[Rfam]
RNA sequence: AGGGCCAGAAGAGGAGCGUUAACCAGGUAAUUAUCAUCGUUUUUUCUUGUAUUUUUAAGAAGAAAAAAACAGAGUUCAAAAUCUGUAGAUGUUAAUGAGGGGGAUUAACGCCGAGGUAAUCGACUAUUUGAUUAGUCGCUUAUCGGUUGUUUAUUUUGUUUAAUCAAUAAAUAAAAUAGUGGGCUGAAUCCCGACAACUGUCACUUGAUUCAAUAACCCUAUGGGUUAUUUAAGUGGGGAGCUUCUGGUCUU
Numbered sequence: 001a002g003g004g005c006c007a008g009a010a011g012a013g014g015a016g017c018g019u020u021a022a023c024c025a026g027g028u029a030a031u032u033a034u035c036a037u038c039g040u041u042u043u044u045u046c047u048u049g050u051a052u053u054u055u056u057a058a059g060a061a062g063a064a065a066a067a068a069a070c071a072g073a074g075u076u077c078a079a080a081a082u083c084u085g086u087a088g089a090u091g092u093u094a095a096u097g098a099g100g101g102g103g104a105u106u107a108a109c110g111c112c113g114a115g116g117u118a119a120u121c122g123a124c125u126a127u128u129u130g131a132u133u134a135g136u137c138g139c140u141u142a143u144c145g146g147u148u149g150u151u152u153a154u155u156u157u158g159u160u161u162a163a164u165c166a167a168u169a170a171a172u173a174a175a176a177u178a179g180u181g182g183g184c185u186g187a188a189u190c191c192c193g194a195c196a197a198c199u200g201u202c203a204c205u206u207g208a209u210u211c212a213a214u215a216a217c218c219c220u221a222u223g224g225g226u227u228a229u230u231u232a233a234g235u236g237g238g239g240a241g242c243u244u245c246u247g248g249u250c251u252u
Base pairs, nucleotide, nucleotide: 006247007246008245009244010243011242016111017110018109019108020107021106022105024103030096031095032094033093035091036090037089115144116143117142118141119140121138122137123136124135125134126133145199146198147197148196149195150194201237202236203235204234205233206232207231
RNA: Lysine riboswitch aptamer
Organism: Colwellia ponticola